Annotation:
Small nucleolar RNA SNORA27: a 123-nucleotide sequence from Orycteropus afer. ACA27 is a member of the H/ACA class of snoRNA that guide the sites of modification of uridines to pseudouridines. The pairing is the family consensus, mapped onto this sequence. Its family is annotated with RNA processing and nucleolus in the Gene Ontology. The organism belongs to Orycteropus afer, within Eukaryota.

RNA sequence: AAUGCAAAACUGAAUUCUACAAUAGGAUGUAUAUCUUUAUUGACCAUUCAAGUAGGGCAAGGGAAUUAUCCUUUUAAAACUUGGGUAAACUCAGUGUCUUGGAUCCUUUCAGAGAAAACAAAU
Numbered sequence: 001a002a003u004g005c006a007a008a009a010c011u012g013a014a015u016u017c018u019a020c021a022a023u024a025g026g027a028u029g030u031a032u033a034u035c036u037u038u039a040u041u042g043a044c045c046a047u048u049c050a051a052g053u054a055g056g057g058c059a060a061g062g063g064a065a066u067u068a069u070c071c072u073u074u075u076a077a078a079a080c081u082u083g084g085g086u087a088a089a090c091u092c093a094g095u096g097u098c099u100u101g102g103a104u105c106c107u108u109u110c111a112g113a114g115a116a117a118a119c120a121a122a123u
Base pairs, nucleotide, nucleotide: 032059034057035056036055040051041050042049043048069116071114072113073112074111082101083099084098085097090096